[Rfam]
RNA sequence: CCCUUAUCUUUUAAAAGUUUCAAAUUGGUCCCUUAUCUUUAUUUUAGGUUUCAAAUUGGUCCAUUCCGUCAAUUUUUUUACUGUUACUGUUAAAAUUGGACACGUGUCAUCUGUCUAAAUUAGUUUGCCACGUGUCCAAAUUUAACGGAAAUAGUUAAAAAAUUGGCGGAAGGGACCAACUUGAAACCUAAAAUAAAGAUAAGGGACCAACUUGAAACUUUUAAAAGAUAAGGGA
Numbered sequence: 001c002c003c004u005u006a007u008c009u010u011u012u013a014a015a016a017g018u019u020u021c022a023a024a025u026u027g028g029u030c031c032c033u034u035a036u037c038u039u040u041a042u043u044u045u046a047g048g049u050u051u052c053a054a055a056u057u058g059g060u061c062c063a064u065u066c067c068g069u070c071a072a073u074u075u076u077u078u079u080a081c082u083g084u085u086a087c088u089g090u091u092a093a094a095a096u097u098g099g100a101c102a103c104g105u106g107u108c109a110u111c112u113g114u115c116u117a118a119a120u121u122a123g124u125u126u127g128c129c130a131c132g133u134g135u136c137c138a139a140a141u142u143u144a145a146c147g148g149a150a151a152u153a154g155u156u157a158a159a160a161a162a163u164u165g166g167c168g169g170a171a172g173g174g175a176c177c178a179a180c181u182u183g184a185a186a187c188c189u190a191a192a193a194u195a196a197a198g199a200u201a202a203g204g205g206a207c208c209a210a211c212u213u214g215a216a217a218c219u220u221u222u223a224a225a226a227g228a229u230a231a232g233g234g235a
Base pairs, nucleotide, nucleotide: 002233003232004231005230006229007228008227023212025210027208028207029206031204032203033202034201035200036199037198038197039196040195041194042193043192045190046189047188
Dot-bracket structure: .(((((((..............(.(.(((.(((((((((((((.(((............................................................................................................................................))).))))))))))))).))).).)..............)))))))..